[Rfam]
RNA sequence: CCACUCUGAAAAGCAGCCGUCCCGCACGGCUCGCCCACGGUGAAAGCACCGUCCUCGGACGGCGCGAAGCUCUCAGGCCCAUGACAGAGGGGGA
Numbered sequence: 001c002c003a004c005u006c007u008g009a010a011a012a013g014c015a016g017c018c019g020u021c022c023c024g025c026a027c028g029g030c031u032c033g034c035c036c037a038c039g040g041u042g043a044a045a046g047c048a049c050c051g052u053c054c055u056c057g058g059a060c061g062g063c064g065c066g067a068a069g070c071u072c073u074c075a076g077g078c079c080c081a082u083g084a085c086a087g088a089g090g091g092g093g094a
Stems, first nucleotide, its partner, number of pairs: 001092002004089005015031004033078003037073001040072001042070001046065002
The family of this 94-nucleotide sequence from Clavibacter michiganensis is "Glycine riboswitch aptamer". The base pairs follow the family's consensus structure.